RNA sequence: AUCUUUGCGCAGUGGCAGUAUCGUAGCCCAUGAGGUACAUCCGAGGCGUGAUUAUUGCUGGUUGAAAACUUAACCCAAUACCCCGCCAAAUCUGCUUGAAAUAUUAGCGGGUUUGGCAAUUUUGACAGUCUCAUAUGGGA
Numbered sequence: 001a002u003c004u005u006u007g008c009g010c011a012g013u014g015g016c017a018g019u020a021u022c023g024u025a026g027c028c029c030a031u032g033a034g035g036u037a038c039a040u041c042c043g044a045g046g047c048g049u050g051a052u053u054a055u056u057g058c059u060g061g062u063u064g065a066a067a068a069c070u071u072a073a074c075c076c077a078a079u080a081c082c083c084c085g086c087c088a089a090a091u092c093u094g095c096u097u098g099a100a101a102u103a104u105u106a107g108c109g110g111g112u113u114u115g116g117c118a119a120u121u122u123u124g125a126c127a128g129u130c131u132c133a134u135a136u137g138g139g140a
Stems, first nucleotide, its partner, number of pairs: 020052005026047003034042002085117012129140004
About this RNA:
Shown here is a 140-nucleotide RNA from Anguilla anguilla, a member of the family "U4 spliceosomal RNA". Taxonomically the source falls in Anguilla (Eukaryota, Metazoa, Actinopteri, Teleostei). It is annotated as a spliceosomal small nuclear RNA. U4 small nuclear RNA (U4 snRNA) is a component of the major U2-dependent spliceosome. The match comes from Rfam's covariance-model search (111 bits). The base pairs follow the family's consensus structure, which is taken from published work.